RNase MRP: a 264-nucleotide RNA from Nyssa sinensis. Taxonomically the source falls in Nyssa (Eukaryota, Streptophytina, Spermatophyta, Mesangiospermae). It is annotated as a ribozyme.

RNA sequence: UUCGACCACAACUCUACGUGAAUGGGUUAAGAUUUUCCCUCGAGGUAAUCGAACCCAGGAAAGUCCCCGGGCCUAUUACUGCAGAAAUGCAGGCCCGGAAACGGGUUUACUUCGAGCGAAUAGGAAUCCGUUCCCAUUCCCAUUAAUGAGGAGGGGCUGAGACACGUGUGGAGCCUUGGAUUCCAGCCGGAGUCUCUUGGCCGAACAAUAGUUAUUCACGUGGUCCACUGGACUAACUGAACGGGGCUUAUCAUUUGAGGUCAU
Numbered sequence: 001u002u003c004g005a006c007c008a009c010a011a012c013u014c015u016a017c018g019u020g021a022a023u024g025g026g027u028u029a030a031g032a033u034u035u036u037c038c039c040u041c042g043a044g045g046u047a048a049u050c051g052a053a054c055c056c057a058g059g060a061a062a063g064u065c066c067c068c069g070g071g072c073c074u075a076u077u078a079c080u081g082c083a084g085a086a087a088u089g090c091a092g093g094c095c096c097g098g099a100a101a102c103g104g105g106u107u108u109a110c111u112u113c114g115a116g117c118g119a120a121u122a123g124g125a126a127u128c129c130g131u132u133c134c135c136a137u138u139c140c141c142a143u144u145a146a147u148g149a150g151g152a153g154g155g156g157c158u159g160a161g162a163c164a165c166g167u168g169u170g171g172a173g174c175c176u177u178g179g180a181u182u183c184c185a186g187c188c189g190g191a192g193u194c195u196c197u198u199g200g201c202c203g204a205a206c207a208a209u210a211g212u213u214a215u216u217c218a219c220g221u222g223g224u225c226c227a228c229u230g231g232a233c234u235a236a237c238u239g240a241a242c243g244g245g246g247c248u249u250a251u252c253a254u255u256u257g258a259g260g261u262c263a264u
Stems, first nucleotide, its partner, number of pairs: 004262004009257003016221006024056004061249003065246004080091004092107006136193005143186002150184003154176004164169001223233004
RNase MRP is an enzymatically active ribonucleoprotein with two distinct roles in eukaryotes. In mitochondria it plays a direct role in the initiation of mitochondrial DNA replication.